Rfam assigns this 146-nucleotide RNA from Halanaerobacter jeridensis to the family "c-di-AMP riboswitch aptamer (ydaO/yuaA leader)".
It scores 94 bits against the family's covariance model.
Taxonomically the source falls in Halanaerobacter (Bacteria, Bacillati, Clostridia, Halobacteroidaceae).
[Rfam]
RNA sequence: AUAUUUAAUCAGCCGAAUUUUAUAUUAUGUACGAUUCUAAUAUAAAAGCGGGGGAUCCACUUUUUGGGGCGAAUCCAAUUACUUGGUAAGGCUUUCCCUUUGCCUGAGCCCGUCAGCUAACUCCGUAGGCUUUUAAAAGGGAGGUA
Dot-bracket structure: ..........((((...((((((((((..........))))))))))((((((....((.....))(((.....((((....))))..((((.........))))...))).........)))))).))))...............
Numbered sequence: 001a002u003a004u005u006u007a008a009u010c011a012g013c014c015g016a017a018u019u020u021u022a023u024a025u026u027a028u029g030u031a032c033g034a035u036u037c038u039a040a041u042a043u044a045a046a047a048g049c050g051g052g053g054g055a056u057c058c059a060c061u062u063u064u065u066g067g068g069g070c071g072a073a074u075c076c077a078a079u080u081a082c083u084u085g086g087u088a089a090g091g092c093u094u095u096c097c098c099u100u101u102g103c104c105u106g107a108g109c110c111c112g113u114c115a116g117c118u119a120a121c122u123c124c125g126u127a128g129g130c131u132u133u134u135a136a137a138a139g140g141g142a143g144g145u146a
Stems, first nucleotide, its partner, number of pairs: 011131004018047010048126006058066002067111003075086004089105004